[Rfam]
RNA sequence: AGGUCAUUUCAAAGAGAGCUUGUGGGACCAGGAUCUUUUUAACACUGUGACCAAUGACUGAAGUUCUCCAUAGGAUGUAACAGUCACUCAGUAGUACUAUGUUUUCCCGAGGAGAUAUAAAA
Numbered sequence: 001a002g003g004u005c006a007u008u009u010c011a012a013a014g015a016g017a018g019c020u021u022g023u024g025g026g027a028c029c030a031g032g033a034u035c036u037u038u039u040u041a042a043c044a045c046u047g048u049g050a051c052c053a054a055u056g057a058c059u060g061a062a063g064u065u066c067u068c069c070a071u072a073g074g075a076u077g078u079a080a081c082a083g084u085c086a087c088u089c090a091g092u093a094g095u096a097c098u099a100u101g102u103u104u105u106c107c108c109g110a111g112g113a114g115a116u117a118u119a120a121a122a
Stems, first nucleotide, its partner, number of pairs: 002052006014039005020033002023031001065115005073107003080100001082098002086095003
Background: This 122-nucleotide sequence from Pteropus alecto belongs to the Rfam family "Small nucleolar RNA SNORA25". The base pairs follow the family's consensus structure, which was predicted with RNAfold.